Rfam assigns this 318-nucleotide sequence from Fulmarus glacialis to the family "Small Cajal body-specific RNA 7". The family's RNA type in Rfam is small Cajal body RNA. The match comes from Rfam's covariance-model search (175 bits). Pairs were carried over by alignment from the consensus structure. The source organism's lineage runs through Eukaryota, Chordata, Euteleostomi, Procellariidae and Fulmarus. Rfam 15.1 lists 570 matches to the family in 531 species.
RNA sequence: UGGAAGUGAUGAAAUAGAGAUAAUUGGAUGUCUCUCUGAAUGGAGUGUGUGUGAUAAAUGGAAUUUAAAUCAAGUCAGACUGGGGGUGGGGUGUGGGGAAUGUGUGCGUGCGCGGAUGUACAGAAAAGGCUUUAAAUGGGGGCACUGAUAAUGCAGUGCUGAUUCCGGAGUGCAUCUGAGGCAUGUUGUUAAGUUCAGGGGUCCCACUUUACAACAUUGCCAAUGAUUAAAGCCCAAAACAAGCCCACCAGGACAAGCCUAGGCAUCCUAAAUCUCUAACAGGUUCAUUAAUGAAAGUGAUCCUGUGAUCUGAUCUGA
Numbered sequence: 001u002g003g004a005a006g007u008g009a010u011g012a013a014a015u016a017g018a019g020a021u022a023a024u025u026g027g028a029u030g031u032c033u034c035u036c037u038g039a040a041u042g043g044a045g046u047g048u049g050u051g052u053g054a055u056a057a058a059u060g061g062a063a064u065u066u067a068a069a070u071c072a073a074g075u076c077a078g079a080c081u082g083g084g085g086g087u088g089g090g091g092u093g094u095g096g097g098g099a100a101u102g103u104g105u106g107c108g109u110g111c112g113c114g115g116a117u118g119u120a121c122a123g124a125a126a127a128g129g130c131u132u133u134a135a136a137u138g139g140g141g142g143c144a145c146u147g148a149u150a151a152u153g154c155a156g157u158g159c160u161g162a163u164u165c166c167g168g169a170g171u172g173c174a175u176c177u178g179a180g181g182c183a184u185g186u187u188g189u190u191a192a193g194u195u196c197a198g199g200g201g202u203c204c205c206a207c208u209u210u211a212c213a214a215c216a217u218u219g220c221c222a223a224u225g226a227u228u229a230a231a232g233c234c235c236a237a238a239a240c241a242a243g244c245c246c247a248c249c250a251g252g253a254c255a256a257g258c259c260u261a262g263g264c265a266u267c268c269u270a271a272a273u274c275u276c277u278a279a280c281a282g283g284u285u286c287a288u289u290a291a292u293g294a295a296a297g298u299g300a301u302c303c304u305g306u307g308a309u310c311u312g313a314u315c316u317g318a
Stems, first nucleotide, its partner, number of pairs: 001317004184216006191209001193204001196201001